Rfam assigns this 130-nucleotide sequence from Pipistrellus kuhlii to the family "U11 spliceosomal RNA". It scores 86 bits against the family's covariance model.

RNA sequence: AAAAAGGGCUUCUGCGGUGAGUGGCACAUGUAGAGCAGCUUGAUUGUUCUACAUGCGGAAUUGACACAAAGAGAUUUCAGAAAGUUUUUUGGUUCUUGGGCAGCUGGUGAUCAUUGGUCCUGGCGCCCAC
Numbered sequence: 001a002a003a004a005a006g007g008g009c010u011u012c013u014g015c016g017g018u019g020a021g022u023g024g025c026a027c028a029u030g031u032a033g034a035g036c037a038g039c040u041u042g043a044u045u046g047u048u049c050u051a052c053a054u055g056c057g058g059a060a061u062u063g064a065c066a067c068a069a070a071g072a073g074a075u076u077u078c079a080g081a082a083a084g085u086u087u088u089u090u091g092g093u094u095c096u097u098g099g100g101c102a103g104c105u106g107g108u109g110a111u112c113a114u115u116g117g118u119c120c121u122g123g124c125g126c127c128c129a130c
Base pairs, nucleotide, nucleotide: 010082011081012080013026014025015024017022027055028054029053030052031051032050033049034048035047036046037045038044057078058077059076060075061074062073098128099127100126101125103124104123105122106121107120109119110118111117112116